[Rfam]
RNA: PyrR binding site
Organism: Planomicrobium sp. CPCC 101110
RNA sequence: AACACCUUUAAGACAGUCCAGAGAGGCUGAGAAGGUAUUUACGCAAGCCGGAAGUCUGUCUUCCGAGCCUUAUUUUCUGCGCAUAAAACCUCUUGCCCUCUGGCAAGAGGUUUUUUAUUU
Numbered sequence: 001a002a003c004a005c006c007u008u009u010a011a012g013a014c015a016g017u018c019c020a021g022a023g024a025g026g027c028u029g030a031g032a033a034g035g036u037a038u039u040u041a042c043g044c045a046a047g048c049c050g051g052a053a054g055u056c057u058g059u060c061u062u063c064c065g066a067g068c069c070u071u072a073u074u075u076u077c078u079g080c081g082c083a084u085a086a087a088a089c090c091u092c093u094u095g096c097c098c099u100c101u102g103g104c105a106a107g108a109g110g111u112u113u114u115u116u117a118u119u120u
Base pairs, nucleotide, nucleotide: 004036005035006034007033008032009031014029015028016027017026018025048079050077051076052075053074054073055072058069060067061066085114086113087112088111089110090109091108092107093106094105095104096103097102